[Rfam]
RNA sequence: UUUUCUACACAUCAGAAUGACCUGAAAUUUGGAGCAUGUGUUCAUCAAAUAUAGAUGAAUCUACGAAAAAUAUCAAAACAAUAUUUUACAUGAAAUAAAUUGACCAAAAUACCCCCAAAAAGUUUCAGGGGUAUUUUGGUCAAUUUUGUUUUCGCGAAUUUUUUUUAUAUAUAUUUUUAUUAGGUGCGUCUCACCAAGAUGUACACAUGCUCCAACUUUCAGAUCAUUCCUAUUUGUAGAAAA
Numbered sequence: 001u002u003u004u005c006u007a008c009a010c011a012u013c014a015g016a017a018u019g020a021c022c023u024g025a026a027a028u029u030u031g032g033a034g035c036a037u038g039u040g041u042u043c044a045u046c047a048a049a050u051a052u053a054g055a056u057g058a059a060u061c062u063a064c065g066a067a068a069a070a071u072a073u074c075a076a077a078a079c080a081a082u083a084u085u086u087u088a089c090a091u092g093a094a095a096u097a098a099a100u101u102g103a104c105c106a107a108a109a110u111a112c113c114c115c116c117a118a119a120a121a122g123u124u125u126c127a128g129g130g131g132u133a134u135u136u137u138g139g140u141c142a143a144u145u146u147u148g149u150u151u152u153c154g155c156g157a158a159u160u161u162u163u164u165u166u167a168u169a170u171a172u173a174u175u176u177u178u179a180u181u182a183g184g185u186g187c188g189u190c191u192c193a194c195c196a197a198g199a200u201g202u203a204c205a206c207a208u209g210c211u212c213c214a215a216c217u218u219u220c221a222g223a224u225c226a227u228u229c230c231u232a233u234u235u236g237u238a239g240a241a242a243a
Stems, first nucleotide, its partner, number of pairs: 001243009011233002015229006022222006029215006036208006043201003061183003066178008076168001077166002080163001097146018117124002
The family of this 243-nucleotide sequence from Amborella trichopoda is "MIR8562 microRNA precursor family". The organism belongs to Amborella, within Eukaryota.